[Rfam]
RNA sequence: GCCAACGUGGCUCAGUUGGUAGAGCAGCUCACUCGUAAUGAGCAGGUCACCGGUUCAAGUCCGGUCGUUGGCU
Numbered sequence: 001g002c003c004a005a006c007g008u009g010g011c012u013c014a015g016u017u018g019g020u021a022g023a024g025c026a027g028c029u030c031a032c033u034c035g036u037a038a039u040g041a042g043c044a045g046g047u048c049a050c051c052g053g054u055u056c057a058a059g060u061c062c063g064g065u066c067g068u069u070g071g072c073u
Stems, first nucleotide, its partner, number of pairs: 001072007010025004027043005049065005